[Rfam]
RNA sequence: UUUGUUUGUCCUAAAUCAAACUUGUUCAACUUUGAUCAAAUUAUAGAAAAAUAUAACAACAACUAUACUAUCAAAUAUAUGCACAAUCAAAACAUAUUCCAUGGUGGAUUCAAACCAGCAAAUUUGAUAUUGUAAAUGUUAUUAUAUUUUUCUAUAAACUUGGUCAAAAUUGAACAUGUUUGACUUAGGAUAAACUAAA
Number, nucleotide and partner (000 for none) at each position: 001u000002u000003u000004g000005u194006u193007u192008g191009u190010c000011c188012u187013a186014a185015a000016u183017c182018a181019a180020a179021c178022u000023u176024g175025u174026u173027c000028a000029a000030c000031u168032u167033u166034g165035a164036u000037c000038a000039a000040a000041u000042u000043a000044u154045a153046g152047a151048a150049a149050a148051a147052u000053a000054u144055a143056a142057c000058a140059a139060c138061a137062a000063c000064u134065a133066u132067a131068c000069u000070a000071u127072c126073a125074a124075a123076u122077a000078u000079a000080u000081g000082c000083a000084c000085a000086a000087u000088c000089a000090a000091a000092a000093c000094a000095u000096a000097u000098u000099c000100c000101a000102u000103g000104g000105u000106g000107g000108a000109u000110u000111c000112a000113a000114a000115c000116c000117a000118g000119c000120a000121a000122a076123u075124u074125u073126g072127a071128u000129a000130u000131u067132g066133u065134a064135a000136a000137u061138g060139u059140u058141a000142u056143u055144a054145u000146a000147u051148u050149u049150u048151u047152c046153u045154a044155u000156a000157a000158a000159c000160u000161u000162g000163g000164u035165c034166a033167a032168a031169a000170u000171u000172g000173a026174a025175c024176a023177u000178g021179u020180u019181u018182g017183a016184c000185u014186u013187a012188g011189g000190a009191u008192a007193a006194a005195c000196u000197a000198a000199a000